[Rfam]
RNA sequence: UACUUCUCACUCCAGACCUUGACCUGAUCGUCUGUUUAUCGGUACGUAAACGUUUGCCUGUACACACCCUGGCGCCAAAAUUGAGCAUGGCAUCACGUCGGGAAAACGACACAGAACGACAGGAAGGGGUCAAUGGCCGAUACGCUUUCAAAUUAGCGUGGGAUUUUGUCCGAUCUUGGGGCAAAGGGGAAGAGCAAAAAUGUGCAUCACUCUAAAUCUCGGAAGAUUUUUACGCUAUUCUGUGUAAAAAUGAGCAAGCUCACUUUUCAUGUGGGGAUAAUCAGGGGGAAAAAUUGAUGGAUACAAAUUUAAAGUUUUCGCUGACGACGACGAUUAUUGUUCUUGGUUUGAUUGUUGCCGCAGGUUUGACCGCCGUACUGCACUAAUUA
Numbered sequence: 001u002a003c004u005u006c007u008c009a010c011u012c013c014a015g016a017c018c019u020u021g022a023c024c025u026g027a028u029c030g031u032c033u034g035u036u037u038a039u040c041g042g043u044a045c046g047u048a049a050a051c052g053u054u055u056g057c058c059u060g061u062a063c064a065c066a067c068c069c070u071g072g073c074g075c076c077a078a079a080a081u082u083g084a085g086c087a088u089g090g091c092a093u094c095a096c097g098u099c100g101g102g103a104a105a106a107c108g109a110c111a112c113a114g115a116a117c118g119a120c121a122g123g124a125a126g127g128g129g130u131c132a133a134u135g136g137c138c139g140a141u142a143c144g145c146u147u148u149c150a151a152a153u154u155a156g157c158g159u160g161g162g163a164u165u166u167u168g169u170c171c172g173a174u175c176u177u178g179g180g181g182c183a184a185a186g187g188g189g190a191a192g193a194g195c196a197a198a199a200a201u202g203u204g205c206a207u208c209a210c211u212c213u214a215a216a217u218c219u220c221g222g223a224a225g226a227u228u229u230u231u232a233c234g235c236u237a238u239u240c241u242g243u244g245u246a247a248a249a250a251u252g253a254g255c256a257a258g259c260u261c262a263c264u265u266u267u268c269a270u271g272u273g274g275g276g277a278u279a280a281u282c283a284g285g286g287g288g289a290a291a292a293a294u295u296g297a298u299g300g301a302u303a304c305a306a307a308u309u310u311a312a313a314g315u316u317u318u319c320g321c322u323g324a325c326g327a328c329g330a331c332g333a334u335u336a337u338u339g340u341u342c343u344u345g346g347u348u349u350g351a352u353u354g355u356u357g358c359c360g361c362a363g364g365u366u367u368g369a370c371c372g373c374c375g376u377a378c379u380g381c382a383c384u385a386a387u388u389a
Base pairs, nucleotide, nucleotide: 015131016130017129018128019127020126021029022028031123032122033121034120035119041094042093043092044059046057047056048055049054074091075090076089077088098114100112143194145192146191148162149161151159169187170186175181236305264283269278270277